[Rfam]
RNA sequence: CAAGAAGGUCGGGCAAUCGCGGGCCGGGGUGACCCGGUUCGAGGAAAGUCCGGGCACUGCAGAGCAGAAUGCCAGCUAACGGCUGGGCGGCGUGAGCCGACGGAAAGUGCCACAGAAAACGUACCGCCGGGCAACCGGUAAGGGUGAAAAGGUGCGGUAAGAGCGCACCGCGCAGCGGGUAACCGUCUGCGGCAGGGUAAACCCCAUUCAGUGCAAGACCAAAUAGGAAAACAGGCUCGUUUCGCACGGGCACGGUGUGGCUCGCACCGGGUUUUCGGGUAGGUCGCUUGAGGCUGGCAGUGAUGCCAUGCCCAGAUGAAUGGUUGCCGCCUGGUGACAGGACAGAACCCGGCUUAUAGACCUUCUUGCCUU
Numbered sequence: 001c002a003a004g005a006a007g008g009u010c011g012g013g014c015a016a017u018c019g020c021g022g023g024c025c026g027g028g029g030u031g032a033c034c035c036g037g038u039u040c041g042a043g044g045a046a047a048g049u050c051c052g053g054g055c056a057c058u059g060c061a062g063a064g065c066a067g068a069a070u071g072c073c074a075g076c077u078a079a080c081g082g083c084u085g086g087g088c089g090g091c092g093u094g095a096g097c098c099g100a101c102g103g104a105a106a107g108u109g110c111c112a113c114a115g116a117a118a119a120c121g122u123a124c125c126g127c128c129g130g131g132c133a134a135c136c137g138g139u140a141a142g143g144g145u146g147a148a149a150a151g152g153u154g155c156g157g158u159a160a161g162a163g164c165g166c167a168c169c170g171c172g173c174a175g176c177g178g179g180u181a182a183c184c185g186u187c188u189g190c191g192g193c194a195g196g197g198u199a200a201a202c203c204c205c206a207u208u209c210a211g212u213g214c215a216a217g218a219c220c221a222a223a224u225a226g227g228a229a230a231a232c233a234g235g236c237u238c239g240u241u242u243c244g245c246a247c248g249g250g251c252a253c254g255g256u257g258u259g260g261c262u263c264g265c266a267c268c269g270g271g272u273u274u275u276c277g278g279g280u281a282g283g284u285c286g287c288u289u290g291a292g293g294c295u296g297g298c299a300g301u302g303a304u305g306c307c308a309u310g311c312c313c314a315g316a317u318g319a320a321u322g323g324u325u326g327c328c329g330c331c332u333g334g335u336g337a338c339a340g341g342a343c344a345g346a347a348c349c350c351g352g353c354u355u356a357u358a359g360a361c362c363u364u365c366u367u368g369c370c371u372u
Stems, first nucleotide, its partner, number of pairs: 001368010011357001012328007020041009046355003050352005055213004062263004067209005072086005087101001088099004102204002107202002109198003124143002126139005151169006170193001171191005176185003217285004227276006254268005292311001295308005

Bacterial RNase P class A: a 372-nucleotide sequence from Thiomicrospira sp. WB1. Lineage of the source: Bacteria > Pseudomonadota > Thiotrichales > Piscirickettsiaceae > Thiomicrospira. By type it is a ribozyme. The base pairs follow the family's consensus structure, which is taken from published work.